A member of the RNA family "Bacteroidetes FopS (family of paralogous sRNAs)" from Prevotella sp. ne3005, 71 nucleotides long. The RNA-binding protein RbpB and BTncRNA_FopS sRNA are involved in the post-transcription regulation of polysaccharide utilisation loci (PUL). FopS sRNAs function as post-transcriptional repressors by binding to the vicinity of the start codon of the first mRNA of target PUL polycistrons, typically corresponding to the cognate SusC homolog, impeding translation of the respective glycan transporter. On this family, see Ruttiger et al., Nat Commun 2025: "The global RNA-binding protein RbpB is a regulator of polysaccharide utilization in Bacteroides thetaiotaomicron".

RNA sequence: GUGUUUUUCAUAGUAUUAGAUUUAAGGUUAACAAAGGUUUGGAGCUCAGCGGAGCUCCUUUUUGUUUUAUA
Numbered sequence: 001g002u003g004u005u006u007u008u009c010a011u012a013g014u015a016u017u018a019g020a021u022u023u024a025a026g027g028u029u030a031a032c033a034a035a036g037g038u039u040u041g042g043a044g045c046u047c048a049g050c051g052g053a054g055c056u057c058c059u060u061u062u063u064g065u066u067u068u069a070u071a
Base pairs, nucleotide, nucleotide: 041058042057043056044055045054046053047052